The family of this 114-nucleotide sequence from Jaculus jaculus is "Potassium channel RNA editing signal". A search with the family's covariance model found it, with a score of 106 bits. The organism belongs to Jaculus, within Eukaryota. Rfam describes the family as follows. This family represents a group of sequences related to the human potassium channel Kv1.1 hairpin element which directs the efficient modification of an adenosine to inosine by an adenosine deaminase acting on RNA (ADAR). The ADAR modification causes an isoleucine/valine recoding event which lies in the ion-conducting pore of the potassium channel. It is thought that this editing event targets the process of fast inactivation and allows a more rapid recovery from inactivation at negative potentials. The family's consensus secondary structure is taken from published work.
RNA sequence: GUCGGUUACGGUGAUAUGCACCCAGUGACCAUAGGCGGUAAGAUCGUGGGCUCCCUGUGCGCCAUCGCGGGCGUUUUGACCAUCGCUUUGCCGGUUCCUGUGAUUGUUUCCAAC
Numbered sequence: 001g002u003c004g005g006u007u008a009c010g011g012u013g014a015u016a017u018g019c020a021c022c023c024a025g026u027g028a029c030c031a032u033a034g035g036c037g038g039u040a041a042g043a044u045c046g047u048g049g050g051c052u053c054c055c056u057g058u059g060c061g062c063c064a065u066c067g068c069g070g071g072c073g074u075u076u077u078g079a080c081c082a083u084c085g086c087u088u089u090g091c092c093g094g095u096u097c098c099u100g101u102g103a104u105u106g107u108u109u110c111c112a113a114c
Base pairs, nucleotide, nucleotide: 001114002113004111005110008107009106010105011104014101015100016099018097020095021094037077038076040074049063050062051061